[Rfam]
RNA sequence: UUAAAGACUAUGAAGGGGAUUAGUAAAAGGUUAGCGGAACUCUCAGAGAGCCGGGGAAGGUGCGAGCCGGCAGUAACACGCCUUUGAACUCACCCUGGAGUUGCUGCCUGAAUAAUUAGGGUAAGCCGGGUUUUCCCGUUACAGAAAGGAACGGUAUUUGUAAAGCUUACAUUUCACCGAUGCCGUUCACAGAGGGAGCUUUCUUAUAAAGGAAGCUAACUAGAGUGGUACCGCGGAAAUUACCCCGUCUCUUGC
Numbered sequence: 001u002u003a004a005a006g007a008c009u010a011u012g013a014a015g016g017g018g019a020u021u022a023g024u025a026a027a028a029g030g031u032u033a034g035c036g037g038a039a040c041u042c043u044c045a046g047a048g049a050g051c052c053g054g055g056g057a058a059g060g061u062g063c064g065a066g067c068c069g070g071c072a073g074u075a076a077c078a079c080g081c082c083u084u085u086g087a088a089c090u091c092a093c094c095c096u097g098g099a100g101u102u103g104c105u106g107c108c109u110g111a112a113u114a115a116u117u118a119g120g121g122u123a124a125g126c127c128g129g130g131u132u133u134u135c136c137c138g139u140u141a142c143a144g145a146a147a148g149g150a151a152c153g154g155u156a157u158u159u160g161u162a163a164a165g166c167u168u169a170c171a172u173u174u175c176a177c178c179g180a181u182g183c184c185g186u187u188c189a190c191a192g193a194g195g196g197a198g199c200u201u202u203c204u205u206a207u208a209a210a211g212g213a214a215g216c217u218a219a220c221u222a223g224a225g226u227g228g229u230a231c232c233g234c235g236g237a238a239a240u241u242a243c244c245c246c247g248u249c250u251c252u253u254g255c
Stems, first nucleotide, its partner, number of pairs: 007101002015096004026085006039074003050071005104125002106122004127138003197217007222252004233248004
Notes:
A member of the RNA family "T-box leader" from Clostridium thermosuccinogenes, 255 nucleotides long. Lineage of the source: Bacteria > Bacillota > Clostridia > Clostridiaceae > Clostridium. The family's consensus secondary structure is taken from published work. From the family's description: Uncharged tRNA acts as the effector for transcription antitermination of genes in the T-box leader family. It scores 133 bits against the family's covariance model. The family's RNA type in Rfam is cis-regulatory leader. Its family is annotated with tRNA binding in the Gene Ontology. A reference for the family is Grundy et al. (1994), "Interaction between the acceptor end of tRNA and the T box stimulates antitermination in the Bacillus subtilis tyrS gene: a new role for the discriminator base", J Bacteriol.